[Rfam]
Source information: Rfam assigns this 68-nucleotide RNA from Urocolius indicus to the family "small nucleolar RNA snoR117". On this family, see Chen and Wu, Nucleic Acids Res 2009: "Mining small RNA sequencing data: a new approach to identify small nucleolar RNAs in Arabidopsis". The source organism's lineage runs through Eukaryota, Craniata, Dinosauria, Coelurosauria and Urocolius. A search with the family's covariance model found it, with a score of 43 bits.
RNA sequence: GGUCUGUGAUGAAUUUUGGUGUGUAUCAUCUGAGUAUUUGUUUGAAGAUAAUCAGUACUCUGAGACCU
Numbered sequence: 001g002g003u004c005u006g007u008g009a010u011g012a013a014u015u016u017u018g019g020u021g022u023g024u025a026u027c028a029u030c031u032g033a034g035u036a037u038u039u040g041u042u043u044g045a046a047g048a049u050a051a052u053c054a055g056u057a058c059u060c061u062g063a064g065a066c067c068u
Stems, first nucleotide, its partner, number of pairs: 001067004